[Rfam]
A member of the RNA family "RAGATH-18 RNA", 74 nucleotides long.
The base pairs follow the family's consensus structure, which is taken from published work.
About the family: Actinobacteria, Firmicutes, Fusobacteria, Thermotogae (1 example).
It is annotated as a small RNA.
RNA sequence: CCUAUGGAGAGUAUACAAAAUUGUGAGUAGAAAUGUUUCAAUGUUUUCAAAAACAUACUCUAAUGAAGUAGGAA
Numbered sequence: 001c002c003u004a005u006g007g008a009g010a011g012u013a014u015a016c017a018a019a020a021u022u023g024u025g026a027g028u029a030g031a032a033a034u035g036u037u038u039c040a041a042u043g044u045u046u047u048c049a050a051a052a053a054c055a056u057a058c059u060c061u062a063a064u065g066a067a068g069u070a071g072g073a074a
Stems, first nucleotide, its partner, number of pairs: 001072005009060005022055003030048003034043002